[Rfam]
RNA sequence: AACUGACUUCAGGGCGGGGCGAAAUUCCCCACCGGUGGUAAUCGCAAUAACUGAUGAUGCGCCUUGCAUCAUUAGGCGGGAGCCCACGAGCGCUUAUCUAAAUUAGGUAAGGUCAGCAGAUCAGGUUAAAUGCCUGAGCCGACGGUUAUAGUCCGGAUGGAAGAAGUCGAAA
Numbered sequence: 001a002a003c004u005g006a007c008u009u010c011a012g013g014g015c016g017g018g019g020c021g022a023a024a025u026u027c028c029c030c031a032c033c034g035g036u037g038g039u040a041a042u043c044g045c046a047a048u049a050a051c052u053g054a055u056g057a058u059g060c061g062c063c064u065u066g067c068a069u070c071a072u073u074a075g076g077c078g079g080g081a082g083c084c085c086a087c088g089a090g091c092g093c094u095u096a097u098c099u100a101a102a103u104u105a106g107g108u109a110a111g112g113u114c115a116g117c118a119g120a121u122c123a124g125g126u127u128a129a130a131u132g133c134c135u136g137a138g139c140c141g142a143c144g145g146u147u148a149u150a151g152u153c154c155g156g157a158u159g160g161a162a163g164a165a166g167u168c169g170a171a172a
Base pairs, nucleotide, nucleotide: 004169005168006167007166008165009164010163017029018028019027031152032151033141034140035087036086037085038084090117091116121137122136123135124134125133143155144154145153
RNA: FMN riboswitch aptamer (RFN element)
Organism: Reinekea thalattae